RNA sequence: GCCCCAUGUCGCACGUGCCCGUGGGCGUCCCCCGGCCCUCAAAUGCGAGGUCACCGGGACGGUACCUGGACGUAACACAUCCAGUCGAUUUCGCCGCAUCGCGGAAUCGAGGACGCCUUUAAGCAACGACGGUCCGGGCCUUU
Numbered sequence: 001g002c003c004c005c006a007u008g009u010c011g012c013a014c015g016u017g018c019c020c021g022u023g024g025g026c027g028u029c030c031c032c033c034g035g036c037c038c039u040c041a042a043a044u045g046c047g048a049g050g051u052c053a054c055c056g057g058g059a060c061g062g063u064a065c066c067u068g069g070a071c072g073u074a075a076c077a078c079a080u081c082c083a084g085u086c087g088a089u090u091u092c093g094c095c096g097c098a099u100c101g102c103g104g105a106a107u108c109g110a111g112g113a114c115g116c117c118u119u120u121a122a123g124c125a126a127c128g129a130c131g132g133u134c135c136g137g138g139c140c141u142u143u
Base pairs, nucleotide, nucleotide: 001139002138003137004136008130009129010128011127016125017124018123023118024117025116026115027114028113029112030111031058032057033056034055035054037050038049039048040047066084067083068082069081070080085110086109087108088107091104092103093102094101
RNA: Alphaproteobacterial sRNA ar45